[Rfam]
RNA: MIR398 microRNA precursor family
RNA sequence: GGAAGCCCUACAGGGGCGACCUGAGAACACAUCAAAGACAGUGGAUAAGGUUUUCAUCUAGAACUGACCAAAUGUGAUCUCAUGUCGCUCCUGUUGGGCUCCU
Numbered sequence: 001g002g003a004a005g006c007c008c009u010a011c012a013g014g015g016g017c018g019a020c021c022u023g024a025g026a027a028c029a030c031a032u033c034a035a036a037g038a039c040a041g042u043g044g045a046u047a048a049g050g051u052u053u054u055c056a057u058c059u060a061g062a063a064c065u066g067a068c069c070a071a072a073u074g075u076g077a078u079c080u081c082a083u084g085u086c087g088c089u090c091c092u093g094u095u096g097g098g099c100u101c102c103u
Base pairs, nucleotide, nucleotide: 007097008096011093012092013091014090016088017087018086019085023081024080025079026078028076029075030074031073032072